[Rfam]
RNA sequence: UGUGAAAACCUCUUUGCGGAAGAGCACAAAUAACUGACUUUUGUCAUUAUUAAGGCUUUCUUGUGUUC
Dot-bracket structure: ...........(.....((((.((((.((.(.((.(....).)).))).)....)))))))...)...

The family of this 68-nucleotide RNA from Melanocharis versteri is "Small Cajal body specific RNA ncR26". The source organism's lineage runs through Eukaryota, Gnathostomata, Australaves, Passeroidea and Melanocharis. The match comes from Rfam's covariance-model search (42 bits).